[Rfam]
RNA sequence: AACUGAGGUAGAGGAGCAGAAUUUAAGAGUAAGAUUGUGGAGAUAAGCACUAUGAAGCAAUUAGAAAGGAAAUUCUGCCGAAGUAUACAGUAGAGGCUUUAAUGCUGUAUUGCUGGUUUUGCAUAGAAUAUGUGCAGGACUGUCACAACGGACUAGUUUGUGGAGAGCUAUCAUUCAU
Numbered sequence: 001a002a003c004u005g006a007g008g009u010a011g012a013g014g015a016g017c018a019g020a021a022u023u024u025a026a027g028a029g030u031a032a033g034a035u036u037g038u039g040g041a042g043a044u045a046a047g048c049a050c051u052a053u054g055a056a057g058c059a060a061u062u063a064g065a066a067a068g069g070a071a072a073u074u075c076u077g078c079c080g081a082a083g084u085a086u087a088c089a090g091u092a093g094a095g096g097c098u099u100u101a102a103u104g105c106u107g108u109a110u111u112g113c114u115g116g117u118u119u120u121g122c123a124u125a126g127a128a129u130a131u132g133u134g135c136a137g138g139a140c141u142g143u144c145a146c147a148a149c150g151g152a153c154u155a156g157u158u159u160g161u162g163g164a165g166a167g168c169u170a171u172c173a174u175u176c177a178u
Stems, first nucleotide, its partner, number of pairs: 007172005016078009033062006082114004086109007115141011143163006

The record is a 178-nucleotide sequence from Clostridium magnum, which matches "Lysine riboswitch aptamer" in Rfam. A search with the family's covariance model found it, with a score of 116 bits. Pairs were carried over by alignment from the consensus structure, which is taken from published work. About the family: Riboswitches are metabolite binding domains within certain messenger RNAs that serve as precision sensors for their corresponding targets. Allosteric rearrangement of mRNA structure is mediated by ligand binding, and this results in modulation of gene expression. This family includes riboswitches that sense lysine in a number of genes involved in lysine metabolism, including lysC. Lineage of the source: Bacteria > Bacillati > Clostridia > Clostridium > Clostridium magnum.